Rfam assigns this 90-nucleotide RNA sequence from Cucumis sativus to the family "Small nucleolar RNA U54".
RNA sequence: UGCUCUGUGAUUACAUGCCUUAAUAGGGCAAUAUACGCUAUUCUGAAGAUGAAAGUUUGUGUAGAUAUCUAUGGAAGCUAUAUGAGAGCU
Numbered sequence: 001u002g003c004u005c006u007g008u009g010a011u012u013a014c015a016u017g018c019c020u021u022a023a024u025a026g027g028g029c030a031a032u033a034u035a036c037g038c039u040a041u042u043c044u045g046a047a048g049a050u051g052a053a054a055g056u057u058u059g060u061g062u063a064g065a066u067a068u069c070u071a072u073g074g075a076a077g078c079u080a081u082a083u084g085a086g087a088g089c090u
Stems, first nucleotide, its partner, number of pairs: 002089004
Rfam classes the family as a C/D-box small nucleolar RNA. Taxonomically the source falls in Cucumis (Eukaryota, Viridiplantae, Mesangiospermae, Cucurbitales). The literature on the family includes a 2003 paper in Nucleic Acids Res by Chen et al., "The high diversity of snoRNAs in plants: identification and comparative study of 120 snoRNA genes from Oryza sativa". U54 is a C/D box small nucleolar RNA, which acts as a methylation guide for 18S ribosomal RNA in plants. Pairs were carried over by alignment from the consensus structure, which was predicted with PFOLD.